[Rfam]
RNA sequence: UCGCUAACAGAUGAUAAAUCUAAGGCUUGUUUCUCAUAACAUUCGCAGUUGCCGCCCAAGUGCUCUCGCCUUGCCAGGCUUGAGAGCUAAUGCUGCUAAAUCCGUCCUUGGAUGUCUGAGCCA
Numbered sequence: 001u002c003g004c005u006a007a008c009a010g011a012u013g014a015u016a017a018a019u020c021u022a023a024g025g026c027u028u029g030u031u032u033c034u035c036a037u038a039a040c041a042u043u044c045g046c047a048g049u050u051g052c053c054g055c056c057c058a059a060g061u062g063c064u065c066u067c068g069c070c071u072u073g074c075c076a077g078g079c080u081u082g083a084g085a086g087c088u089a090a091u092g093c094u095g096c097u098a099a100a101u102c103c104g105u106c107c108u109u110g111g112a113u114g115u116c117u118g119a120g121c122c123a
Base pairs, nucleotide, nucleotide: 001123003121004120062087063086064085065084066083067082